[Rfam]
RNA sequence: GAUAAUAAACCCAUCAAUAGAUAUAGUGCGUGGCUGUUUACAGACUAAGUACUAUAUCUAUUAGAUGGGUAAACAGACAUGAGCAAAACAGGGCGUAGCCCGAUUUGCGAAUGUAUGUUGUGAUUUCGGGAGUUCGCAGAACUCAGAAAUUACGAUAUAAUA
Numbered sequence: 001g002a003u004a005a006u007a008a009a010c011c012c013a014u015c016a017a018u019a020g021a022u023a024u025a026g027u028g029c030g031u032g033g034c035u036g037u038u039u040a041c042a043g044a045c046u047a048a049g050u051a052c053u054a055u056a057u058c059u060a061u062u063a064g065a066u067g068g069g070u071a072a073a074c075a076g077a078c079a080u081g082a083g084c085a086a087a088a089c090a091g092g093g094c095g096u097a098g099c100c101c102g103a104u105u106u107g108c109g110a111a112u113g114u115a116u117g118u119u120g121u122g123a124u125u126u127c128g129g130g131a132g133u134u135c136g137c138a139g140a141a142c143u144c145a146g147a148a149a150u151u152a153c154g155a156u157a158u159a160a161u162a
Stems, first nucleotide, its partner, number of pairs: 002161002005158003010069004016062014031047001032045001034043003073118003077114004083108004091101004121152007132142004
A member of the RNA family "Clostridiales-1 RNA" from Firmicutes bacterium CAG:882, 162 nucleotides long. By type it is a small RNA. The organism belongs to Bacillota, within Bacteria.